RNA: Glycine riboswitch aptamer
Organism: Crystallibacter crystallopoietes
RNA sequence: CGACAUGCGGCGGGAGAGUCCUGCUGGUAACCGUCAGCAGGCGCCGUAGGAGCAAUACCUCCCCAGGAAUCUCUCAGGCACCUGUACCGCCGCGGAGAG
Number, nucleotide and partner (000 for none) at each position: 001c000002g000003a000004c000005a000006u094007g093008c092009g091010g090011c089012g088013g087014g000015a000016g000017a000018g000019u000020c041021c040022u039023g038024c037025u036026g000027g000028u000029a000030a000031c000032c000033g000034u000035c000036a025037g024038c023039a022040g021041g020042c000043g079044c078045c077046g075047u000048a000049g000050g073051a072052g071053c000054a000055a000056u066057a000058c000059c000060u000061c000062c000063c000064c000065a000066g056067g000068a000069a000070u000071c052072u051073c050074u000075c046076a000077g045078g044079c043080a000081c000082c000083u000084g000085u000086a000087c013088c012089g011090c010091c009092g008093c007094g006095g000096a000097g000098a000099g000